RNA sequence: UACCUCCUGAGAAUGGCACUGAAAGAAUUCACGGGUACUCAGUGAUACUCCCGUGGUUCCACAGUGCCAUACUCAGUGGGCC
Numbered sequence: 001u002a003c004c005u006c007c008u009g010a011g012a013a014u015g016g017c018a019c020u021g022a023a024a025g026a027a028u029u030c031a032c033g034g035g036u037a038c039u040c041a042g043u044g045a046u047a048c049u050c051c052c053g054u055g056g057u058u059c060c061a062c063a064g065u066g067c068c069a070u071a072c073u074c075a076g077u078g079g080g081c082c
Base pairs, nucleotide, nucleotide: 003080004079005078007076008075009074010073013070014069015068016067017066018065020063021062025058026057029056030055031054032053033052034051